A member of the RNA family "Insect-Specific Flavivirus 3' UTR repeats Ra and Rb elements" from Culex flavivirus, 95 nucleotides long. Lineage of the source: Viruses > Flasuviricetes > Amarillovirales > Flaviviridae > Orthoflavivirus. Rfam classes the family as a cis-regulatory element. About the family: 3' UTRs in insect specific flavivirus families present three to four repeats of conserved element Ra and Rb. For this family Rfam cites "Functional RNA Structures in the 3'UTR of Tick-Borne, Insect-Specific and No-Known-Vector Flaviviruses" (Ochsenreiter et al., Viruses, 2019).
RNA sequence: CGCAAGGAAGGACAUGGCUGUCCUUGGGUACGAACGACACCCCGCCCCCAGUUCUCAAGGUUAGAGUUAUAACCUCAGGGUGUUGGAAGACAUCC
Numbered sequence: 001c002g003c004a005a006g007g008a009a010g011g012a013c014a015u016g017g018c019u020g021u022c023c024u025u026g027g028g029u030a031c032g033a034a035c036g037a038c039a040c041c042c043c044g045c046c047c048c049c050a051g052u053u054c055u056c057a058a059g060g061u062u063a064g065a066g067u068u069a070u071a072a073c074c075u076c077a078g079g080g081u082g083u084u085g086g087a088a089g090a091c092a093u094c095c
Stems, first nucleotide, its partner, number of pairs: 002052002006048002008025007026042004059074005078095007